This 52-nucleotide RNA from Tardiphaga robiniae belongs to the Rfam family "Xanthine riboswitch aptamer (NMT1 RNA)". On this family, see Yu and Breaker, RNA 2020: "A bacterial riboswitch class senses xanthine and uric acid to regulate genes associated with purine oxidation". It scores 52 bits against the family's covariance model.
[Rfam]
RNA sequence: CCUCAGAGUAGAAGCGGUCAGAACCAGUGCGGUUCGGGACAUUGCUCGGCAA
Numbered sequence: 001c002c003u004c005a006g007a008g009u010a011g012a013a014g015c016g017g018u019c020a021g022a023a024c025c026a027g028u029g030c031g032g033u034u035c036g037g038g039a040c041a042u043u044g045c046u047c048g049g050c051a052a
Stems, first nucleotide, its partner, number of pairs: 006047005015037001018039002021035005